[Rfam]
RNA sequence: UCGAUCAGUACGCCGAACCCUGUCACUGAGCGAGGUCCCAUCACAAGAAUCGACAGGGACGGGGGACCCACUCAUCUGGUGUUCGCACCUUGGGGUGAAGUCCCGCUCGACCGUGAGGUCGAGCUGACCGGGUAGAUCUCUCGACCCGAACCCGACAGCUAACCUCGAAGGCGUCCGGAGAGGUUUC
Numbered sequence: 001u002c003g004a005u006c007a008g009u010a011c012g013c014c015g016a017a018c019c020c021u022g023u024c025a026c027u028g029a030g031c032g033a034g035g036u037c038c039c040a041u042c043a044c045a046a047g048a049a050u051c052g053a054c055a056g057g058g059a060c061g062g063g064g065g066a067c068c069c070a071c072u073c074a075u076c077u078g079g080u081g082u083u084c085g086c087a088c089c090u091u092g093g094g095g096u097g098a099a100g101u102c103c104c105g106c107u108c109g110a111c112c113g114u115g116a117g118g119u120c121g122a123g124c125u126g127a128c129c130g131g132g133u134a135g136a137u138c139u140c141u142c143g144a145c146c147c148g149a150a151c152c153c154g155a156c157a158g159c160u161a162a163c164c165u166c167g168a169a170g171g172c173g174u175c176c177g178g179a180g181a182g183g184u185u186u187c
Base pairs, nucleotide, nucleotide: 011173012172013171014170018058019057020056021055022054023053024052060167061166062165063164064163069092070091093153094152095151101127102126130147131146132145133144
Rfam assigns this 187-nucleotide sequence from Occultella aeris to the family "c-di-AMP riboswitch aptamer (ydaO/yuaA leader)". A search with the family's covariance model found it, with a score of 73 bits. Taxonomically the source falls in Occultella (Bacteria, Bacillati, Actinomycetota, Actinomycetes).